[Rfam]
RNA sequence: UGGUUGGUAUCGUAAGAGCCAAACCAUUUAUUAAAAAUUUAAAAACUUAAUUCAUUUUUCGCUUAGCUUGGAUCCUUAAGGACCGAGACACAG
Numbered sequence: 001u002g003g004u005u006g007g008u009a010u011c012g013u014a015a016g017a018g019c020c021a022a023a024c025c026a027u028u029u030a031u032u033a034a035a036a037a038u039u040u041a042a043a044a045a046c047u048u049a050a051u052u053c054a055u056u057u058u059u060c061g062c063u064u065a066g067c068u069u070g071g072a073u074c075c076u077u078a079a080g081g082a083c084c085g086a087g088a089c090a091c092a093g
Base pairs, nucleotide, nucleotide: 001026002025003024004022005021006020007019008018010017011016066089067087068086069085070084071083073082074081075080
Record summary: Rfam assigns this 93-nucleotide RNA sequence from Caldisalinibacter kiritimatiensis to the family "pan motif". The family's RNA type in Rfam is cis-regulatory element. NCBI's taxonomy places the organism under Bacteria, Bacillota, Tissierellales, Thermohalobacteraceae, Caldisalinibacter.